Source information: Shown here is a 91-nucleotide RNA from Aphidius gifuensis, a member of the family "mir-67 microRNA precursor family". Taxonomically the source falls in Aphidius (Eukaryota, Panarthropoda, Dicondylia, Ichneumonoidea). The family has 33 seed sequences and 196 matches in Rfam 15.1.
[Rfam]
RNA sequence: UUUUUCGUUGACUCACUCAACCUGGGUGUGAUGCUUGCCUAAUAGGCUCCCAAGUAGCCAUCACAACCUUUUUGAGUGAGCGAAUGGGAUC
Numbered sequence: 001u002u003u004u005u006c007g008u009u010g011a012c013u014c015a016c017u018c019a020a021c022c023u024g025g026g027u028g029u030g031a032u033g034c035u036u037g038c039c040u041a042a043u044a045g046g047c048u049c050c051c052a053a054g055u056a057g058c059c060a061u062c063a064c065a066a067c068c069u070u071u072u073u074g075a076g077u078g079a080g081c082g083a084a085u086g087g088g089a090u091c
Stems, first nucleotide, its partner, number of pairs: 008083003012080009024068002027065007